Rfam assigns this 107-nucleotide RNA sequence from Priestia megaterium to the family "SAM riboswitch aptamer (S box leader)".
The base pairs follow the family's consensus structure, which is taken from published work.
Clan: SAM clan.
For this family Rfam cites "The S box regulon: a new global transcription termination control system for methionine and cysteine biosynthesis genes in gram-positive bacteria" (Grundy and Henkin, Mol Microbiol, 1998).
Lineage of the source: Bacteria > Bacillota > Bacilli > Bacillaceae > Priestia megaterium.
RNA sequence: UUCUUAUCAUGAGAGGUGGAGGGACUGGCCCUUUGAAACCUCAGCAACCAGUCGUUAGAGACAUGGUGCUAAAUCCAGCAAGCAAUUUAUUGCUUGGAAGAUAAGAA
Numbered sequence: 001u002u003c004u005u006a007u008c009a010u011g012a013g014a015g016g017u018g019g020a021g022g023g024a025c026u027g028g029c030c031c032u033u034u035g036a037a038a039c040c041u042c043a044g045c046a047a048c049c050a051g052u053c054g055u056u057a058g059a060g061a062c063a064u065g066g067u068g069c070u071a072a073a074u075c076c077a078g079c080a081a082g083c084a085a086u087u088u089a090u091u092g093c094u095u096g097g098a099a100g101a102u103a104a105g106a107a
Stems, first nucleotide, its partner, number of pairs: 001107008013042005021031003025078004043070004048066002051062003074099001079096006